[Rfam]
RNA sequence: GAGGAUAUGAUGAUCCUUUCCUGAUGAUUGGCAAUGAACAUGCUGAGCGCUAUUAUUUCUCUUCACAGAAACCAAGCCAGUAUUCGGAUCCUC
Numbered sequence: 001g002a003g004g005a006u007a008u009g010a011u012g013a014u015c016c017u018u019u020c021c022u023g024a025u026g027a028u029u030g031g032c033a034a035u036g037a038a039c040a041u042g043c044u045g046a047g048c049g050c051u052a053u054u055a056u057u058u059c060u061c062u063u064c065a066c067a068g069a070a071a072c073c074a075a076g077c078c079a080g081u082a083u084u085c086g087g088a089u090c091c092u093c
Stems, first nucleotide, its partner, number of pairs: 001093005
Small nucleolar RNA Z103: a 93-nucleotide sequence from Triticum urartu. The organism belongs to Triticum, within Eukaryota. For this family Rfam cites "The high diversity of snoRNAs in plants: identification and comparative study of 120 snoRNA genes from Oryza sativa" (Chen et al., Nucleic Acids Res, 2003). The family's consensus secondary structure was predicted with PFOLD. Rfam classes the family as a C/D-box small nucleolar RNA.